[Rfam]
RNA sequence: UUCCCAUCCGGAGCGGCCGAGAGACCUGGCUCGUUGACGUCGCAGCAACCGGUACCCGUGCGGUGCAAGGUGCUAAUGCCAGGAGACGAUGGAGU
Dot-bracket structure: .(.(((((....(((((...(((..[[[[)))......)))))((((.((.((((.......))))..))))))...(]]]]....)))))).).
Source information: A member of the RNA family "SAM riboswitch aptamer (S box leader)" from Kocuria sp. WRN011, 95 nucleotides long. The match comes from Rfam's covariance-model search (58 bits). The base pairs follow the family's consensus structure, which is taken from published work. Rfam links the family to the GO term regulation of gene expression.